The family of this 115-nucleotide RNA from Denitrobaculum tricleocarpae is "TPP riboswitch aptamer (THI element)". The base pairs follow the family's consensus structure, which is taken from published work. Vitamin B(1) in its active form thiamin pyrophosphate (TPP) is an essential coenzyme that is synthesised by coupling of pyrimidine and thiazole moieties in bacteria. Taxonomically the source falls in Denitrobaculum (Bacteria, Pseudomonadati, Pseudomonadota, Rhodospirillaceae). A search with the family's covariance model found it, with a score of 75 bits.
RNA sequence: AGUCAUUCCUAGGGGUGUCCUUUUGGCAAAGGACUGAGAUGGCGCUGUUGCCGCGUCGGACUCUUAGAACCUGAUCCGGGUCAUGCCGGCGAAGGGAGUGGAGUCUCAAUGUCAC
Numbered sequence: 001a002g003u004c005a006u007u008c009c010u011a012g013g014g015g016u017g018u019c020c021u022u023u024u025g026g027c028a029a030a031g032g033a034c035u036g037a038g039a040u041g042g043c044g045c046u047g048u049u050g051c052c053g054c055g056u057c058g059g060a061c062u063c064u065u066a067g068a069a070c071c072u073g074a075u076c077c078g079g080g081u082c083a084u085g086c087c088g089g090c091g092a093a094g095g096g097a098g099u100g101g102a103g104u105c106u107c108a109a110u111g112u113c114a115c
Stems, first nucleotide, its partner, number of pairs: 006103004011064004016058001017034005041057005070095003076089004
Dot-bracket structure: .....((((.((((.((((((........)))))......(((((.......))))))..)))).....(((...((((......))))...)))....))))............